[Rfam]
RNA sequence: AGAUAUGUCAUUAUAAUGCCUCUGCAAUAAUAGAACCGUCUGGAAUAUCUCUCUUUGGUUAGACGGCGUGGACAGCAGAGACAGAUUAAAUCUUUGGAAUUGGCUUUUGACUCUCUUCUUCUACCGAUUAUAUGGGAUUUUCCUCCGUUCCCAUACGAUCUGUCAUCAGUCUUUCAAACAAUC
Numbered sequence: 001a002g003a004u005a006u007g008u009c010a011u012u013a014u015a016a017u018g019c020c021u022c023u024g025c026a027a028u029a030a031u032a033g034a035a036c037c038g039u040c041u042g043g044a045a046u047a048u049c050u051c052u053c054u055u056u057g058g059u060u061a062g063a064c065g066g067c068g069u070g071g072a073c074a075g076c077a078g079a080g081a082c083a084g085a086u087u088a089a090a091u092c093u094u095u096g097g098a099a100u101u102g103g104c105u106u107u108u109g110a111c112u113c114u115c116u117u118c119u120u121c122u123a124c125c126g127a128u129u130a131u132a133u134g135g136g137a138u139u140u141u142c143c144u145c146c147g148u149u150c151c152c153a154u155a156c157g158a159u160c161u162g163u164c165a166u167c168a169g170u171c172u173u174u175c176a177a178a179c180a181a182u183c
Stems, first nucleotide, its partner, number of pairs: 020080006035069002037065007094177005102171004126160004131155002134152004